[Rfam]
This 83-nucleotide RNA sequence from Bombyx mori belongs to the Rfam family "mir-2807 microRNA precursor family". The family has 8 seed sequences and 5,120 matches in Rfam 15.1. The source organism's lineage runs through Eukaryota, Metazoa, Hexapoda, Eumetabola and Bombyx.
RNA sequence: UUAACUCAAAUUUGUAUGAAGUUGGAACGUUUGCCUACGUUUGCCGCUAGGGGCGCUGUUACAACGGCGUAUAAAUUGAGUUA
Numbered sequence: 001u002u003a004a005c006u007c008a009a010a011u012u013u014g015u016a017u018g019a020a021g022u023u024g025g026a027a028c029g030u031u032u033g034c035c036u037a038c039g040u041u042u043g044c045c046g047c048u049a050g051g052g053g054c055g056c057u058g059u060u061a062c063a064a065c066g067g068c069g070u071a072u073a074a075a076u077u078g079a080g081u082u083a
Base pairs, nucleotide, nucleotide: 009077010076011075012074013073014072015071016070018068021065022064023063024062026060027059028058029057034052035051036050039047040046